[Rfam]
This 80-nucleotide RNA sequence from Crocodylus porosus belongs to the Rfam family "Mammalian CPEB3 ribozyme". Rfam links the family to the GO term RNA nuclease activity. NCBI's taxonomy places the organism under Eukaryota, Deuterostomia, Sarcopterygii, Crocodylidae, Crocodylus. The match comes from Rfam's covariance-model search (42 bits). The family's consensus secondary structure is taken from published work.
RNA sequence: AGAGGUCACAAGUUUGAGGCCAUAGCAGAAGCUCUCGCAGUGUAGCCCUGUCAGAUUCCAACAAAUCUGCUAAUUCUACU
Numbered sequence: 001a002g003a004g005g006u007c008a009c010a011a012g013u014u015u016g017a018g019g020c021c022a023u024a025g026c027a028g029a030a031g032c033u034c035u036c037g038c039a040g041u042g043u044a045g046c047c048c049u050g051u052c053a054g055a056u057u058c059c060a061a062c063a064a065a066u067c068u069g070c071u072a073a074u075u076c077u078a079c080u
Base pairs, nucleotide, nucleotide: 016048018047019046020045024080025079027077028076029075030074031043032042052069053068054067055066056065057064
Dot-bracket structure: ...............[.[[[...((.((((((.........)).]]]]...((((((......))))))....)))).))